[Rfam]
RNA sequence: CUCCCCGAAAUAUAUUUAGGUAUAGCCUCGUACGAAUCGUUCCGGAGGUAGAGCACUGAAUGGGCUAGGGGUCUUACCGGAUUACCAAACCUAAUCAAACUCCGAAUGCCGGAAACGUCUAUACGGGAGUCAGACGGCGGGUGAUAAGAUCCGUCGUCGAAAGGGAAACAGCCCAGAUCGCCAGCUAAGGUCCCUAAGUCUGUGCUAAGUGGAAAAGGAUGUGGGAGCGCACUGACAACCAGGAGGUUGGCUUAGAAGCAGCCACCCUUUAAAGAAAGCGUAAUAGCUCACUGGUCAAGUGAACCUGCGCCGAAAAUGUAACGGGGCUCAAGCACAGCACCGAAGCUGCGGAUUUGCAUCCUAAGAUGCAAGUGGUAGGGGAGCAUUGUGGCCACCGCAGAAGGUCGACCGUAAGGACGGCUGGAGGAACCACAAGAGAUUAU
Numbered sequence: 001c002u003c004c005c006c007g008a009a010a011u012a013u014a015u016u017u018a019g020g021u022a023u024a025g026c027c028u029c030g031u032a033c034g035a036a037u038c039g040u041u042c043c044g045g046a047g048g049u050a051g052a053g054c055a056c057u058g059a060a061u062g063g064g065c066u067a068g069g070g071g072u073c074u075u076a077c078c079g080g081a082u083u084a085c086c087a088a089a090c091c092u093a094a095u096c097a098a099a100c101u102c103c104g105a106a107u108g109c110c111g112g113a114a115a116c117g118u119c120u121a122u123a124c125g126g127g128a129g130u131c132a133g134a135c136g137g138c139g140g141g142u143g144a145u146a147a148g149a150u151c152c153g154u155c156g157u158c159g160a161a162a163g164g165g166a167a168a169c170a171g172c173c174c175a176g177a178u179c180g181c182c183a184g185c186u187a188a189g190g191u192c193c194c195u196a197a198g199u200c201u202g203u204g205c206u207a208a209g210u211g212g213a214a215a216a217g218g219a220u221g222u223g224g225g226a227g228c229g230c231a232c233u234g235a236c237a238a239c240c241a242g243g244a245g246g247u248u249g250g251c252u253u254a255g256a257a258g259c260a261g262c263c264a265c266c267c268u269u270u271a272a273a274g275a276a277a278g279c280g281u282a283a284u285a286g287c288u289c290a291c292u293g294g295u296c297a298a299g300u301g302a303a304c305c306u307g308c309g310c311c312g313a314a315a316a317u318g319u320a321a322c323g324g325g326g327c328u329c330a331a332g333c334a335c336a337g338c339a340c341c342g343a344a345g346c347u348g349c350g351g352a353u354u355u356g357c358a359u360c361c362u363a364a365g366a367u368g369c370a371a372g373u374g375g376u377a378g379g380g381g382a383g384c385a386u387u388g389u390g391g392c393c394a395c396c397g398c399a400g401a402a403g404g405u406c407g408a409c410c411g412u413a414a415g416g417a418c419g420g421c422u423g424g425a426g427g428a429a430c431c432a433c434a435a436g437a438g439a440u441u442a443u
Base pairs, nucleotide, nucleotide: 001383002382003381004380005379006378011024012023013022014021015020026129027127028126029125030124031123032122036120037117040114041113042112043111044110045109051103052101053100057097058096059095061093062092063091064090068086069085070083071082072081073080074079133158134157135156136155137154138153139152140151141150142149163174164173165172178351179350180349181348183347184346185345189341190340191339198338200337201336202335203334204333205332217311218310221308222307223306224305225304228301229300230299238295239294240293241292242291244268245267246266249263250262251261269273274289278287279286352373353372354371355370356369357368358367359366384438386435387434388433389432390431391430395427396426403422404421405420406419407418409416410415

The family of this 443-nucleotide part of an RNA from Trichloromonas acetexigens is "Bacterial large subunit ribosomal RNA". Pairs were carried over by alignment from the consensus structure, which is taken from published work.